[Rfam]
RNA: Small nucleolar RNA snoR100
RNA sequence: UGAUGAAUGAAGCAUGGUAAUGUGCACAGAAAUUGGAUUGGGUCUCUUGGCCUGCCCUCUCUGAUGCCAUUUGGCUUUGAUUUGGGGGUAUGGUUCUGCAGCAAAACA
Numbered sequence: 001u002g003a004u005g006a007a008u009g010a011a012g013c014a015u016g017g018u019a020a021u022g023u024g025c026a027c028a029g030a031a032a033u034u035g036g037a038u039u040g041g042g043u044c045u046c047u048u049g050g051c052c053u054g055c056c057c058u059c060u061c062u063g064a065u066g067c068c069a070u071u072u073g074g075c076u077u078u079g080a081u082u083u084g085g086g087g088g089u090a091u092g093g094u095u096c097u098g099c100a101g102c103a104a105a106a107c108a
Stems, first nucleotide, its partner, number of pairs: 012025004040091001042089003050081001052079001054075003